[Rfam]
RNA: Small nucleolar RNA R21
Organism: Trema orientale
RNA sequence: CAUCUCAAUGAAGAUUAGUGUUUAAUUAAAAGUAGUGGACUGACUUACAUUGAUGAUGAACCUUUCUGAGAGAUC
Numbered sequence: 001c002a003u004c005u006c007a008a009u010g011a012a013g014a015u016u017a018g019u020g021u022u023u024a025a026u027u028a029a030a031a032g033u034a035g036u037g038g039a040c041u042g043a044c045u046u047a048c049a050u051u052g053a054u055g056a057u058g059a060a061c062c063u064u065u066c067u068g069a070g071a072g073a074u075c
Stems, first nucleotide, its partner, number of pairs: 002074005